Rfam assigns this 77-nucleotide sequence from Alligator sinensis to the family "Mammalian CPEB3 ribozyme". The family's consensus secondary structure is taken from published work.

RNA sequence: AUUGCAAGUUUGAAGCCAUAGCAGAAGCACUCAUGGUGCGGCUUGUCAAGAGUCCAACAAAAUCUGCAAAUCCUGCU
Numbered sequence: 001a002u003u004g005c006a007a008g009u010u011u012g013a014a015g016c017c018a019u020a021g022c023a024g025a026a027g028c029a030c031u032c033a034u035g036g037u038g039c040g041g042c043u044u045g046u047c048a049a050g051a052g053u054c055c056a057a058c059a060a061a062a063u064c065u066g067c068a069a070a071u072c073c074u075g076c077u
Stems, first nucleotide, its partner, number of pairs: 014043004020077005026071001027039003047066002050064002053061001

Rfam's curators write: The mammalian CPEB3 ribozyme is a self cleaving RNA located in the second intron of the CPEB3 gene which belongs to a family of genes regulating messenger RNA polyadenylation.